skipping-rope RNA: an 80-nucleotide RNA sequence from Butyrivibrio hungatei. The organism belongs to Butyrivibrio, within Bacteria. By type it is a small RNA.

RNA sequence: AACAUUUGACGAGCAGGAAAGGCACCCUGCACUCCCUUAGUGGAACCUGAUAUGAUGGAUACGCCGCCCAUCCAAAUGUU
Numbered sequence: 001a002a003c004a005u006u007u008g009a010c011g012a013g014c015a016g017g018a019a020a021g022g023c024a025c026c027c028u029g030c031a032c033u034c035c036c037u038u039a040g041u042g043g044a045a046c047c048u049g050a051u052a053u054g055a056u057g058g059a060u061a062c063g064c065c066g067c068c069c070a071u072c073c074a075a076a077u078g079u080u
Base pairs, nucleotide, nucleotide: 001080002079003078004077005076006075007074008073013030014029015028016027017026021065022064023063032049033044034043035042054072055071056070057069058068